This 151-nucleotide RNA sequence from Marinobacter sp. R17 belongs to the Rfam family "FMN riboswitch aptamer (RFN element)".
The family's consensus secondary structure is taken from published work.
Taxonomically the source falls in Marinobacter (Bacteria, Pseudomonadati, Pseudomonadales, Marinobacteraceae).
[Rfam]
RNA sequence: CUUCGUUCUCAGGGCGGGGUGAAAGUCCCCACCGGCGGUGAUGGCGCCUGGCGCCUCAGCCCGCGAGCGCCUCAGGGCUUUGCCCGGAGGGUCAGCAGAUUCGGUUAAAAUCCGAAGCCGACGGUGAUAGUCCGGAUGGAAGAGAAGGAAC
Numbered sequence: 001c002u003u004c005g006u007u008c009u010c011a012g013g014g015c016g017g018g019g020u021g022a023a024a025g026u027c028c029c030c031a032c033c034g035g036c037g038g039u040g041a042u043g044g045c046g047c048c049u050g051g052c053g054c055c056u057c058a059g060c061c062c063g064c065g066a067g068c069g070c071c072u073c074a075g076g077g078c079u080u081u082g083c084c085c086g087g088a089g090g091g092u093c094a095g096c097a098g099a100u101u102c103g104g105u106u107a108a109a110a111u112c113c114g115a116a117g118c119c120g121a122c123g124g125u126g127a128u129a130g131u132c133c134g135g136a137u138g139g140a141a142g143a144g145a146a147g148g149a150a151c
Stems, first nucleotide, its partner, number of pairs: 003149002006146005017029003031131002033120002035064004059118002067096002100116005122134003